[Rfam]
RNA sequence: AAAAGUUGUCAUGAUCACACUAACUAUGAUAACUCUGUAGGCAUUACUUCGAACAAGCGAUUAAAAGUAUCUGACAUGAAAGCCCUUCUACGAGUGAUUAACCUGGUCGUGAUUAGCGUGGUGGUGAUUCUUAUCACACCGUGCGGGGCUUCGCUCGGAGAAAGAAAGGCUUAAAAAUCAAGUCUGAAUUCAACGAAACCCCCCGCACCGAAAGGUCCGGGGGUUUUUUUUAUCCAGACAUUCAGUUAGUGACUUAAGGCGGAGCAAACAAUGAACAGCAGCAUAAUAUUCUGUGGUUCUCGCCGAAA
Dot-bracket structure: ....(((((((((.(......).).))))))))....((((..((..(((........))...)))...))))..........(((...(..(..(((((..((((.(((.....))).((((..(((....))).)))).(.((((......)))).)..((....((.((........)).))...))..(.(((((((((.(.(((....)))).))))))))).)....))))...)..))))..)...)..)))((.((.(....(((........)))....).)).)).............

The family of this 308-nucleotide sequence from Duffyella gerundensis is "Soft rot Enterobacteriaceae Rev 39 5'UTR". The family's consensus secondary structure was predicted with RNAfold. On this family, see Kwenda et al., BMC Genomics 2016: "Discovery and profiling of small RNAs responsive to stress conditions in the plant pathogen Pectobacterium atrosepticum". From the family's description: From bacteria cultured under starvation conditions. Rfam classes the family as a cis-regulatory element.